[Rfam]
RNA: Bacterial RNase P class A
Organism: Leifsonia aquatica
RNA sequence: UGGGUCGGCAAGACGGUCGCGUCGGUCCGCGAGAGCGGACCGCCGAGGAACGUCCGGGCUCCACAGAGCAGGGUGGUGGGUAACACCCACCCGGGGUAACCCGCGAGACAGUGCAACAGAAAGCAGACCGCCACCGGCUUCGGCCGGUGGUCAGGGUGAAACGGUGGUGUAAGAGACCACCAGCGGCCGGGGUGACCCGGUCGGCUCGGUAAACCUCGCCCGGAGCAAGGUCAGACAGGGGACGAUGAGGCUGCUCGCCGAGUCCCCGGGUAGACCGCUGGAGGGCGGCGGCAACGUCGCCCCGAGAGAGAUGGCCGUCCGCGACACUCCGGUGUCGUGACAGAACCCGGCGUACUAGCCGGCCCAUUCC
Numbered sequence: 001u002g003g004g005u006c007g008g009c010a011a012g013a014c015g016g017u018c019g020c021g022u023c024g025g026u027c028c029g030c031g032a033g034a035g036c037g038g039a040c041c042g043c044c045g046a047g048g049a050a051c052g053u054c055c056g057g058g059c060u061c062c063a064c065a066g067a068g069c070a071g072g073g074u075g076g077u078g079g080g081u082a083a084c085a086c087c088c089a090c091c092c093g094g095g096g097u098a099a100c101c102c103g104c105g106a107g108a109c110a111g112u113g114c115a116a117c118a119g120a121a122a123g124c125a126g127a128c129c130g131c132c133a134c135c136g137g138c139u140u141c142g143g144c145c146g147g148u149g150g151u152c153a154g155g156g157u158g159a160a161a162c163g164g165u166g167g168u169g170u171a172a173g174a175g176a177c178c179a180c181c182a183g184c185g186g187c188c189g190g191g192g193u194g195a196c197c198c199g200g201u202c203g204g205c206u207c208g209g210u211a212a213a214c215c216u217c218g219c220c221c222g223g224a225g226c227a228a229g230g231u232c233a234g235a236c237a238g239g240g241g242a243c244g245a246u247g248a249g250g251c252u253g254c255u256c257g258c259c260g261a262g263u264c265c266c267c268g269g270g271u272a273g274a275c276c277g278c279u280g281g282a283g284g285g286c287g288g289c290g291g292c293a294a295c296g297u298c299g300c301c302c303c304g305a306g307a308g309a310g311a312u313g314g315c316c317g318u319c320c321g322c323g324a325c326a327c328u329c330c331g332g333u334g335u336c337g338u339g340a341c342a343g344a345a346c347c348c349g350g351c352g353u354a355c356u357a358g359c360c361g362g363c364c365c366a367u368u369c370c
Base pairs, nucleotide, nucleotide: 001366002365003364004363005362006361007360008359009358012319013318014317015316016315017314018313020045021044023042024041025040026039027038028037050353051352052351054350055349056348057347058346059225060224061223062222066256067255068254069253071221072220073219074218075217076090077089078088079087080086091105092103093102094101095100106216107215111214112213113210114209128155129154130151131150132149133148134147135146136145137144138143163181164180165179166178167177168176183205184203185202186201187200188199189198190197191196229276230275231274232273238267239266240265241264242263243262249259250258251257283302284301285300286299287298288297289296290295